[Rfam]
RNA sequence: AUAUCGAACAUUAAUAAAACUCAUAUAAUCUUGGGGAUAUGGCCCAUAAGUUUCUACCGGAUAACCAUCGUAAUUAUCCGACUAUGAGUGAAAUAGCGCAUCUA
Numbered sequence: 001a002u003a004u005c006g007a008a009c010a011u012u013a014a015u016a017a018a019a020c021u022c023a024u025a026u027a028a029u030c031u032u033g034g035g036g037a038u039a040u041g042g043c044c045c046a047u048a049a050g051u052u053u054c055u056a057c058c059g060g061a062u063a064a065c066c067a068u069c070g071u072a073a074u075u076a077u078c079c080g081a082c083u084a085u086g087a088g089u090g091a092a093a094u095a096g097c098g099c100a101u102c103u104a
Stems, first nucleotide, its partner, number of pairs: 019089007029049001032046004058080007
Notes
The record is a 104-nucleotide RNA sequence from Paenibacillus sp. FSL H7-0737, which matches "Purine riboswitch aptamer" in Rfam. Rfam links the family to the GO term purine nucleobase biosynthetic process. About the family: Riboswitches are metabolite binding domains within certain messenger RNAs that serve as precision sensors for their corresponding targets. Allosteric rearrangement of mRNA structure is mediated by ligand binding, and this results in modulation of gene expression. A class of riboswitches that selectively recognises guanine and becomes saturated at concentrations as low as 5 nM. In Bacillus subtilis, this mRNA motif is located on at least five separate transcriptional units that together encode 17 genes that are mostly involved in purine transport and purine nucleotide biosynthesis. It has also been shown that some members of this family are specific for adenine instead. Hence this family are termed purine riboswitches. The base pairs follow the family's consensus structure, which is taken from published work.